[Rfam]
RNA sequence: AGGGGGAGGUCGGAUCCUGGGCUGUGUCCCUGGCGCCCUGUGCUCCCGGGCCUGGGCUAUUGGAUUCGCGCUCCCGGCCUGGCAGCCGCCU
Numbered sequence: 001a002g003g004g005g006g007a008g009g010u011c012g013g014a015u016c017c018u019g020g021g022c023u024g025u026g027u028c029c030c031u032g033g034c035g036c037c038c039u040g041u042g043c044u045c046c047c048g049g050g051c052c053u054g055g056g057c058u059a060u061u062g063g064a065u066u067c068g069c070g071c072u073c074c075c076g077g078c079c080u081g082g083c084a085g086c087c088g089c090c091u
Stems, first nucleotide, its partner, number of pairs: 001091003005087002009083002012079002016077002019074003023070004027064002030062001031059004036054001040052001042051003

Shown here is a 91-nucleotide RNA from Canis lupus, a member of the family "mir-8799 microRNA precursor family". A search with the family's covariance model found it, with a score of 81 bits.